A member of the RNA family "permuted transfer-messenger RNA" from Amphiplicatus metriothermophilus, 222 nucleotides long. Bacterial tmRNA, also known as 10Sa RNA or SsrA, is named for its dual tRNA and mRNA-like properties. The family's RNA type in Rfam is non-coding RNA gene.
RNA sequence: GGCGAUAAAGGACUCGUGCAAUAAGCGCAUCGGACCCGGGGGCGGUACCCGGCGGCUCCACCAAAGCCUCUCCCCGUCUGCGGCCGGGGGAUUUCGGCGGGGCCGAAAUAGGAUCGACGAGCGUGUAAAGACGAGAUCUUCGCCCGGAUGGCCUCCGUUAUUGGGCCGCUCCAAAUAGUUGCCAACGACAACUAUCGGGAAGAGCUCGCUCUCGCUGCGUAA
Numbered sequence: 001g002g003c004g005a006u007a008a009a010g011g012a013c014u015c016g017u018g019c020a021a022u023a024a025g026c027g028c029a030u031c032g033g034a035c036c037c038g039g040g041g042g043c044g045g046u047a048c049c050c051g052g053c054g055g056c057u058c059c060a061c062c063a064a065a066g067c068c069u070c071u072c073c074c075c076g077u078c079u080g081c082g083g084c085c086g087g088g089g090g091a092u093u094u095c096g097g098c099g100g101g102g103c104c105g106a107a108a109u110a111g112g113a114u115c116g117a118c119g120a121g122c123g124u125g126u127a128a129a130g131a132c133g134a135g136a137u138c139u140u141c142g143c144c145c146g147g148a149u150g151g152c153c154u155c156c157g158u159u160a161u162u163g164g165g166c167c168g169c170u171c172c173a174a175a176u177a178g179u180u181g182c183c184a185a186c187g188a189c190a191a192c193u194a195u196c197g198g199g200a201a202g203a204g205c206u207c208g209c210u211c212u213c214g215c216u217g218c219g220u221a222a
Stems, first nucleotide, its partner, number of pairs: 001144005014134004026123003030120003036052005053105007145157004

Lineage of the source: Bacteria > Pseudomonadota > Parvularculales > Parvularculaceae > Amphiplicatus. The base pairs follow the family's consensus structure, which is taken from published work.